[Rfam]
RNA sequence: UUUUGUUACACAACACCCCUUCAACCGAGACCUAUAGGGUGUUUAAAUCACGUCUCUCAUAUCCUGUCUAAGGGUGGCAGGAAAUAGUAACUCCA
Numbered sequence: 001u002u003u004u005g006u007u008a009c010a011c012a013a014c015a016c017c018c019c020u021u022c023a024a025c026c027g028a029g030a031c032c033u034a035u036a037g038g039g040u041g042u043u044u045a046a047a048u049c050a051c052g053u054c055u056c057u058c059a060u061a062u063c064c065u066g067u068c069u070a071a072g073g074g075u076g077g078c079a080g081g082a083a084a085u086a087g088u089a090a091c092u093c094c095a
Stems, first nucleotide, its partner, number of pairs: 014041005027056005062082007
RNA: PhotoRC-II RNA